[Rfam]
RNA sequence: AAACAAUCCUAUAUCACAACUCGUAUAAUAGUAGGAAUAUGGCCUACAAGUCUCUACCAAGCUACCGUAAAUGGCUUGACUACGGGUGAUACUAUACUUUUU
Numbered sequence: 001a002a003a004c005a006a007u008c009c010u011a012u013a014u015c016a017c018a019a020c021u022c023g024u025a026u027a028a029u030a031g032u033a034g035g036a037a038u039a040u041g042g043c044c045u046a047c048a049a050g051u052c053u054c055u056a057c058c059a060a061g062c063u064a065c066c067g068u069a070a071a072u073g074g075c076u077u078g079a080c081u082a083c084g085g086g087u088g089a090u091a092c093u094a095u096a097c098u099u100u101u102u
Stems, first nucleotide, its partner, number of pairs: 019087007029049001031047005058078007
RNA: Purine riboswitch aptamer